[Rfam]
RNA sequence: UGUACCUGUCGCAACUGGCGUUGAGAUGGGCAACCAUCGGGGAGUGACAGCCGUGAUUGUCGAGACUGUGAUCGUGCAGACUGUGAUCGUCUCAGCGGAAGCAGCACGAUUGGGCCGUACGCCUGGGCUCAACGG
Numbered sequence: 001u002g003u004a005c006c007u008g009u010c011g012c013a014a015c016u017g018g019c020g021u022u023g024a025g026a027u028g029g030g031c032a033a034c035c036a037u038c039g040g041g042g043a044g045u046g047a048c049a050g051c052c053g054u055g056a057u058u059g060u061c062g063a064g065a066c067u068g069u070g071a072u073c074g075u076g077c078a079g080a081c082u083g084u085g086a087u088c089g090u091c092u093c094a095g096c097g098g099a100a101g102c103a104g105c106a107c108g109a110u111u112g113g114g115c116c117g118u119a120c121g122c123c124u125g126g127g128c129u130c131a132a133c134g135g
Base pairs, nucleotide, nucleotide: 003053006050007049008048009047010046011045012044015041016040017123018122019121020120021119026037027036028035029034112130113129114128115127116126

Shown here is a 135-nucleotide RNA sequence from Salinibacterium xinjiangense, a member of the family "ZMP/ZTP riboswitch aptamer (pfl RNA motif)". The base pairs follow the family's consensus structure, which is taken from published work. It scores 43 bits against the family's covariance model. NCBI's taxonomy places the organism under Bacteria, Actinomycetes, Micrococcales, Microbacteriaceae, Salinibacterium.